7SK RNA: a 332-nucleotide RNA from Erpetoichthys calabaricus.
The family is grouped with related families in Rfam's "7SK clan".
Pairs were carried over by alignment from the consensus structure, which is taken from published work.
The source organism's lineage runs through Eukaryota, Eumetazoa, Actinopterygii, Cladistia and Erpetoichthys.
For this family Rfam cites "Transcription: surprising role for an elusive small nuclear RNA" (Blencowe, Curr Biol, 2002).
Rfam's curators write: 7SK was discovered as an abundant small nuclear RNA in the mid-70s but a possible function has only recently been suggested. Two independent studies have found that 7SK RNA binds the CDK9/cyclin T complex (known as elongation factor P-TEFb).
The family has 45 seed sequences and 49,373 matches in Rfam 15.1.

RNA sequence: AGAUGUGAGGGCGAUCUGGAUGCAACAUCUGUCACCCCAUUUAUCUCUAGGGUUGAUUCGGCUGAUCUGGCUGGCUAUGCGGGUGUUCCUGUCCUCCCUCACUAUUCCACAUCUGUCCCUCCUGAAGCUCCGCGCUCGGUCAAAUAGGACGAGCCUCCCCGGAAGAAGAGUACCAUUCAUCGGUUCCAAGGGUUUACGAGUAGCUGCGCUCCCCUGCUAGAACCUCCAAACAAGCUCAAGGCCCCGUUGUAGGAGACACGUAGUGAAGUCAAAGCUCAGAGACUUCAGACACAUCCAAGUGUGGCACUGCAUGUGGCAGCCUGCCUUGUUUU
Numbered sequence: 001a002g003a004u005g006u007g008a009g010g011g012c013g014a015u016c017u018g019g020a021u022g023c024a025a026c027a028u029c030u031g032u033c034a035c036c037c038c039a040u041u042u043a044u045c046u047c048u049a050g051g052g053u054u055g056a057u058u059c060g061g062c063u064g065a066u067c068u069g070g071c072u073g074g075c076u077a078u079g080c081g082g083g084u085g086u087u088c089c090u091g092u093c094c095u096c097c098c099u100c101a102c103u104a105u106u107c108c109a110c111a112u113c114u115g116u117c118c119c120u121c122c123u124g125a126a127g128c129u130c131c132g133c134g135c136u137c138g139g140u141c142a143a144a145u146a147g148g149a150c151g152a153g154c155c156u157c158c159c160c161g162g163a164a165g166a167a168g169a170g171u172a173c174c175a176u177u178c179a180u181c182g183g184u185u186c187c188a189a190g191g192g193u194u195u196a197c198g199a200g201u202a203g204c205u206g207c208g209c210u211c212c213c214c215u216g217c218u219a220g221a222a223c224c225u226c227c228a229a230a231c232a233a234g235c236u237c238a239a240g241g242c243c244c245c246g247u248u249g250u251a252g253g254a255g256a257c258a259c260g261u262a263g264u265g266a267a268g269u270c271a272a273a274g275c276u277c278a279g280a281g282a283c284u285u286c287a288g289a290c291a292c293a294u295c296c297a298a299g300u301g302u303g304g305c306a307c308u309g310c311a312u313g314u315g316g317c318a319g320c321c322u323g324c325c326u327u328g329u330u331u332u
Base pairs, nucleotide, nucleotide: 002107003106005102006101007100008099009098010097011096013093014092018090019089024087025086026085027084028083029082030081031080032079035074036073037070038069039068043066044065045064047061048060117170118168120166121165122139123138124137125136127135128134140162141161147158148157149156205272209268210267212265214263215262216261217260224255225254226253227252230250231249232248233247297332298331299330301327303325304324305323307319308318309317310316